[Rfam]
RNA sequence: UGUCUCCUCCAACACCUCAAAGGUUUGGAUUUAACCCACUAAUUAUUUAGUGGGUUUUUUUUU
Numbered sequence: 001u002g003u004c005u006c007c008u009c010c011a012a013c014a015c016c017u018c019a020a021a022g023g024u025u026u027g028g029a030u031u032u033a034a035c036c037c038a039c040u041a042a043u044u045a046u047u048u049a050g051u052g053g054g055u056u057u058u059u060u061u062u063u
Stems, first nucleotide, its partner, number of pairs: 008029005013022001033056008